Description:
Vault RNA: a 122-nucleotide sequence from Strongylocentrotus purpuratus. The organism belongs to Strongylocentrotus, within Eukaryota.

RNA sequence: UGGCUGGCUAAGCAGUGUGGAUACUUCGUAUAGCUAAAUGGUAAAGCCCUUAUUAAUCACAUGAGUAUUUGUGGGUUCGAUCCCCACUACGUCUCUUUCUACACGCGCGAUCCAGCUUUUUU
Number, nucleotide and partner (000 for none) at each position: 001u000002g117003g116004c115005u114006g113007g112008c000009u000010a000011a000012g106013c105014a000015g000016u000017g102018u101019g100020g099021a000022u000023a000024c000025u000026u080027c079028g078029u000030a000031u000032a000033g000034c000035u000036a000037a000038a000039u000040g000041g000042u000043a000044a000045a000046g000047c000048c000049c000050u000051u000052a000053u000054u000055a000056a000057u000058c000059a000060c000061a000062u000063g000064a000065g000066u000067a000068u000069u000070u000071g000072u000073g000074g000075g000076u000077u000078c028079g027080a026081u000082c000083c000084c000085c000086a000087c000088u000089a000090c000091g000092u000093c000094u000095c000096u000097u000098u000099c020100u019101a018102c017103a000104c000105g013106c012107g000108c000109g000110a000111u000112c007113c006114a005115g004116c003117u002118u000119u000120u000121u000122u000
Rfam describes the family as follows. This family of RNAs are found as part of the enigmatic vault ribonucleoprotein complex. The complex consists of a major vault protein (MVP), two minor vault proteins (VPARP and TEP1), and several small untranslated RNA molecules. The sequence is in the family's curated seed alignment. A reference for the family is Stadler et al. (2009), "Evolution of Vault RNAs", Mol Biol Evol. Rfam classes the family as a non-coding RNA gene.